[Rfam]
RNA sequence: GGCAAGGUUAGCAGGCUGAUAUUGUCGAGCGGGGUGUGAAUUAUAAUAUUUCGGCGAUGAGAUCAGCCUGUCGAACCCGGC
Numbered sequence: 001g002g003c004a005a006g007g008u009u010a011g012c013a014g015g016c017u018g019a020u021a022u023u024g025u026c027g028a029g030c031g032g033g034g035u036g037u038g039a040a041u042u043a044u045a046a047u048a049u050u051u052c053g054g055c056g057a058u059g060a061g062a063u064c065a066g067c068c069u070g071u072c073g074a075a076c077c078c079g080g081c
Stems, first nucleotide, its partner, number of pairs: 002081002006077003011071010022060005033052002036049003

A member of the RNA family "mir-6012 microRNA precursor family" from Microctonus hyperodae, 81 nucleotides long. The source organism's lineage runs through Eukaryota, Mandibulata, Pterygota, Eumetabola and Microctonus. A search with the family's covariance model found it, with a score of 72 bits.